[Rfam]
RNA: Xanthine riboswitch aptamer (NMT1 RNA)
RNA sequence: ACCUUGAGUAGAAGCUGUCAGGGGGCCAAACCCCAGGUCAUUGCUCAGUUC
Numbered sequence: 001a002c003c004u005u006g007a008g009u010a011g012a013a014g015c016u017g018u019c020a021g022g023g024g025g026c027c028a029a030a031c032c033c034c035a036g037g038u039c040a041u042u043g044c045u046c047a048g049u050u051c
Base pairs, nucleotide, nucleotide: 005047006046007045008044009043010042015036019037021034022033023032024031